[Rfam]
RNA sequence: CCGCCUGAUAAUGCAUCACCUGAUCAUUGAUGGCUCAACAAUAUCAGGCGGACAAGUAAAUAAACACAGCGCCUAUUGAGCGGGUUGCUGCAAUCCGAAACGGAGAGAUUCGUUUGGACUGCGGUUUGCUUUUUGCACCCAUUUUGCAUUGGCGCU
Number, nucleotide and partner (000 for none) at each position: 001c051002c050003g049004c048005c047006u000007g045008a044009u043010a042011a000012u040013g039014c032015a031016u030017c029018a028019c000020c000021u000022g000023a000024u000025c000026a000027u000028u018029g017030a016031u015032g014033g081034c080035u079036c078037a077038a076039c013040a012041a000042u010043a009044u008045c007046a000047g005048g004049c003050g002051g001052a000053c000054a000055a000056g000057u000058a000059a000060a000061u000062a000063a000064a000065c000066a000067c151068a150069g149070c000071g147072c146073c000074u000075a000076u038077u037078g036079a035080g034081c033082g000083g000084g000085u000086u000087g125088c124089u123090g122091c121092a000093a000094u000095c000096c000097g000098a000099a000100a113101c112102g111103g110104a109105g000106a000107g000108a000109u104110u103111c102112g101113u100114u000115u000116g000117g000118a000119c000120u000121g091122c090123g089124g088125u087126u000127u000128g000129c000130u000131u000132u000133u000134u000135g000136c000137a000138c000139c000140c000141a000142u000143u000144u000145u000146g072147c071148a000149u069150u068151g067152g000153c000154g000155c000156u000
Notes:
Shown here is a 156-nucleotide RNA, a member of the family "DUF2800 RNA". The family's RNA type in Rfam is cis-regulatory element.